[Rfam]
RNA sequence: AAGGCGGGUCGGGCGAUCGCGGUGGAUGCGAAUCCAUCGAGGAAGGUCCGGACUCCAUAGGGCAGGGUAACGGCUAACGGCCGUCCGGUUGCGUCUUCGGGCGCGGCUGAGGAAUAGGGCCACAGAGACGAGACUGGGAAGCGGGCGUGCAUGGCACGCACAGGUACGGCCAUCUCCGUAUCGCGCCCUUCGGCAACGAAGGGCGGCGUCGCAGGGUGAAACGCGGCAACCUCUAUCCGGAGCAACAUCAAAUAGGCAUGCGUGCGGCCCUCGGGUCGCGAAGGGCGGCUCCGUCCAAGCAUGCGGGUAGGUGGCUAGAGCGGCUCAGCAAUGAUCCGCGCAGAGGAAUGAUCGUCCGCCAGGGCAACCUGGUGUACAGAAUCCGGCCUAUAGACCCGUCUUGCAU
Numbered sequence: 001a002a003g004g005c006g007g008g009u010c011g012g013g014c015g016a017u018c019g020c021g022g023u024g025g026a027u028g029c030g031a032a033u034c035c036a037u038c039g040a041g042g043a044a045g046g047u048c049c050g051g052a053c054u055c056c057a058u059a060g061g062g063c064a065g066g067g068u069a070a071c072g073g074c075u076a077a078c079g080g081c082c083g084u085c086c087g088g089u090u091g092c093g094u095c096u097u098c099g100g101g102c103g104c105g106g107c108u109g110a111g112g113a114a115u116a117g118g119g120c121c122a123c124a125g126a127g128a129c130g131a132g133a134c135u136g137g138g139a140a141g142c143g144g145g146c147g148u149g150c151a152u153g154g155c156a157c158g159c160a161c162a163g164g165u166a167c168g169g170c171c172a173u174c175u176c177c178g179u180a181u182c183g184c185g186c187c188c189u190u191c192g193g194c195a196a197c198g199a200a201g202g203g204c205g206g207c208g209u210c211g212c213a214g215g216g217u218g219a220a221a222c223g224c225g226g227c228a229a230c231c232u233c234u235a236u237c238c239g240g241a242g243c244a245a246c247a248u249c250a251a252a253u254a255g256g257c258a259u260g261c262g263u264g265c266g267g268c269c270c271u272c273g274g275g276u277c278g279c280g281a282a283g284g285g286c287g288g289c290u291c292c293g294u295c296c297a298a299g300c301a302u303g304c305g306g307g308u309a310g311g312u313g314g315c316u317a318g319a320g321c322g323g324c325u326c327a328g329c330a331a332u333g334a335u336c337c338g339c340g341c342a343g344a345g346g347a348a349u350g351a352u353c354g355u356c357c358g359c360c361a362g363g364g365c366a367a368c369c370u371g372g373u374g375u376a377c378a379g380a381a382u383c384c385g386g387c388c389u390a391u392a393g394a395c396c397c398g399u400c401u402u403g404c405a406u
Base pairs, nucleotide, nucleotide: 001402002401003400004399005398006397007396008395009394010393011391012356013355014354015353016352017351018350020039021038022037023036024035025034026033027032044389045388046387048386049385050384051383052382053242054241055240056239060291061290062289063288065238066237067236068235069234070084071083072082073081074080085111086109087108088107089106090105091104092103093102094101095100112233113232117231118230119227120226121225163182164181165180166179167178168177184206185204186203187202188201189200190199191198192197246313247312248311249310256304257303258302259301260300261299283296284295285294286293320339321338322337323336325334326333327332
The record is a 406-nucleotide RNA sequence from Achromobacter kerstersii, which matches "Bacterial RNase P class A" in Rfam.
Gene Ontology terms of the family: dimeric ribonuclease P complex, ribonuclease P activity and tRNA processing.
Rfam classes the family as a ribozyme.
Taxonomically the source falls in Achromobacter (Bacteria, Pseudomonadati, Pseudomonadota, Burkholderiales).
Rfam describes the family as follows. Ribonuclease P (RNase P) is a ubiquitous endoribonuclease, found in archaea, bacteria and eukarya as well as chloroplasts and mitochondria.